[Rfam]
RNA sequence: GUAAGCAACCCACUGCUUAAAGCAGUGGGCUUCAGCUAAACCCAGUUUAGUUGAAGCCAAGUUUACCAGACUAUCAGCCUUAAACAAGCUGGGUUUACAUUAAGUGUUAAAGUACUCACCUUGGGAUGCGUAGCUAGUUCCAAGCUCUGAAACCAGGUAAUUAAACAGACAUAAUGGUUUAAAGUCAGUGUUACUUGGAUAGUACCGGAUGUAAACAAAGUCAAAGCUAACUUUAC
Numbered sequence: 001g002u003a004a005g006c007a008a009c010c011c012a013c014u015g016c017u018u019a020a021a022g023c024a025g026u027g028g029g030c031u032u033c034a035g036c037u038a039a040a041c042c043c044a045g046u047u048u049a050g051u052u053g054a055a056g057c058c059a060a061g062u063u064u065a066c067c068a069g070a071c072u073a074u075c076a077g078c079c080u081u082a083a084a085c086a087a088g089c090u091g092g093g094u095u096u097a098c099a100u101u102a103a104g105u106g107u108u109a110a111a112g113u114a115c116u117c118a119c120c121u122u123g124g125g126a127u128g129c130g131u132a133g134c135u136a137g138u139u140c141c142a143a144g145c146u147c148u149g150a151a152a153c154c155a156g157g158u159a160a161u162u163a164a165a166c167a168g169a170c171a172u173a174a175u176g177g178u179u180u181a182a183a184g185u186c187a188g189u190g191u192u193a194c195u196u197g198g199a200u201a202g203u204a205c206c207g208g209a210u211g212u213a214a215a216c217a218a219a220g221u222c223a224a225a226g227c228u229a230a231c232u233u234u235a236c
Base pairs, nucleotide, nucleotide: 001066002065003064004063005062006061010029011028012026013025015023016022030056031055032054033053034052035051036050037049038048039047040046041045069222070221071220072219074092075091076090077089078088093216094215095214096213097212098211099210100209101208116150117149120144121143122142123141124140125139126138127137128232131229132228133227134226135225153198154197155196156195157194158193159192160191161190165189166188168186169185170184172182174180